[Rfam]
RNA sequence: CUUUCAACCACCCCUAGCCGGAUGGUUGUUGAAAC
Numbered sequence: 001c002u003u004u005c006a007a008c009c010a011c012c013c014c015u016a017g018c019c020g021g022a023u024g025g026u027u028g029u030u031g032a033a034a035c
Base pairs, nucleotide, nucleotide: 005031006030007029008028009024012021013020

Shown here is a 35-nucleotide RNA sequence from Nostoc sp. 'Peltigera malacea cyanobiont' DB3992, a member of the family "CRISPR RNA direct repeat element".
Rfam 15.1 lists 201 matches to the family in 33 species.
Pairs were carried over by alignment from the consensus structure, which was predicted with WAR.